[Rfam]
RNA sequence: UUCGUUCAUCUCGAUCCCCUCAAGGUAGUAGUUCGAGACGGAAGUAAGGACAGCAGUUCCCGCUGACCCUGAAGGAACGCGUU
Numbered sequence: 001u002u003c004g005u006u007c008a009u010c011u012c013g014a015u016c017c018c019c020u021c022a023a024g025g026u027a028g029u030a031g032u033u034c035g036a037g038a039c040g041g042a043a044g045u046a047a048g049g050a051c052a053g054c055a056g057u058u059c060c061c062g063c064u065g066a067c068c069c070u071g072a073a074g075g076a077a078c079g080c081g082u083u
Base pairs, nucleotide, nucleotide: 003079004078005077006076007075009038010037011036012035013034041080047070048069049068
The record is an 83-nucleotide RNA sequence from Synechococcus sp. PCC 7335, which matches "Glutamine riboswitch aptamer (glnA leader)" in Rfam. Its family is annotated with glutamine binding in the Gene Ontology. The family's consensus secondary structure is taken from published work.